Rfam assigns this 137-nucleotide RNA sequence from Nonomuraea endophytica to the family "c-di-AMP riboswitch aptamer (ydaO/yuaA leader)". The literature on the family includes a 2004 paper in Proc Natl Acad Sci U S A by Barrick et al., "New RNA motifs suggest an expanded scope for riboswitches in bacterial genetic control".

RNA sequence: CAGCCGUUGCCGCCUAAUCCCGGGCGUGUUGCCCGGGAGCCGGGGACCCACCCUCACCUGGGGUGAAUCCACUUCGGUGGUAGGGCAUCUCCUGCCCGAACCCGUCAGCUAACCCGGCCGGCAGAUGGAGAGGAAUG
Numbered sequence: 001c002a003g004c005c006g007u008u009g010c011c012g013c014c015u016a017a018u019c020c021c022g023g024g025c026g027u028g029u030u031g032c033c034c035g036g037g038a039g040c041c042g043g044g045g046a047c048c049c050a051c052c053c054u055c056a057c058c059u060g061g062g063g064u065g066a067a068u069c070c071a072c073u074u075c076g077g078u079g080g081u082a083g084g085g086c087a088u089c090u091c092c093u094g095c096c097c098g099a100a101c102c103c104g105u106c107a108g109c110u111a112a113c114c115c116g117g118c119c120g121g122c123a124g125a126u127g128g129a130g131a132g133g134a135a136u137g
Stems, first nucleotide, its partner, number of pairs: 012122003018038009039118006049060002061103003069080004083097004